[Rfam]
RNA sequence: UUCAGUCGAGGCGACCUAAACUGCGACAUCCUUGUCGCAACGGUCGCAUGACCUACAUCGUGUUGG
Numbered sequence: 001u002u003c004a005g006u007c008g009a010g011g012c013g014a015c016c017u018a019a020a021c022u023g024c025g026a027c028a029u030c031c032u033u034g035u036c037g038c039a040a041c042g043g044u045c046g047c048a049u050g051a052c053c054u055a056c057a058u059c060g061u062g063u064u065g066g
Stems, first nucleotide, its partner, number of pairs: 011047006023038005052066002055063002
RNA: Bacillaceae-1 RNA